[Rfam]
About this RNA
The record is a 120-nucleotide RNA sequence from Sodalis-like symbiont of Bactericera trigonica, which matches "Histidine operon leader" in Rfam. It is annotated as a cis-regulatory leader. From the family's description: At least 6 amino acid operons are known to be regulated by attenuation. In each a leader sequence of 150-200 bp is found upstream of the first gene in the operon. This leader sequence can assume two different secondary structures known as the terminator and the anti-terminator structure. In each case the leader also codes for very short peptide sequence that is rich in the end product amino acid of the operon. The terminator structure is recognised as a termination signal for RNA polymerase and the operon is not transcribed. This structure forms when the cell has an excess of the regulatory amino acid and ribosome movement over the leader transcript is not impeded. When there is a deficiency of the charged tRNA of the regulatory amino acid the ribosome translating the leader peptide stalls and the antiterminator structure can form. This allows RNA polymerase to transcribe the operon. In the Rfam alignment the consensus structure is of the terminator structure.

RNA sequence: CAACCAUCACCAUCAUCCUGACUAGUCUUUCAGGCUAUGAGUGCUGGAAGACGUUUUAAUCUUCCAGCGGUGCAGAAUGUCAGAUAGAGCCCUUGGAAGAUUUCUUCCGGGUUUUUUUGC
Numbered sequence: 001c002a003a004c005c006a007u008c009a010c011c012a013u014c015a016u017c018c019u020g021a022c023u024a025g026u027c028u029u030u031c032a033g034g035c036u037a038u039g040a041g042u043g044c045u046g047g048a049a050g051a052c053g054u055u056u057u058a059a060u061c062u063u064c065c066a067g068c069g070g071u072g073c074a075g076a077a078u079g080u081c082a083g084a085u086a087g088a089g090c091c092c093u094u095g096g097a098a099g100a101u102u103u104c105u106u107c108c109g110g111g112u113u114u115u116u117u118u119g120c
Base pairs, nucleotide, nucleotide: 008043009042010041011039012038013037017034018033019032020031021030044067045066046065047064048063049062050061051060084117086115087114088113089112090111091110092109095108096107097106098105099104

About this RNA:
NCBI's taxonomy places the organism under Bacteria, Pseudomonadota, Gammaproteobacteria, Bruguierivoracaceae, Sodalis. Rfam links the family to the GO term histidine biosynthetic process.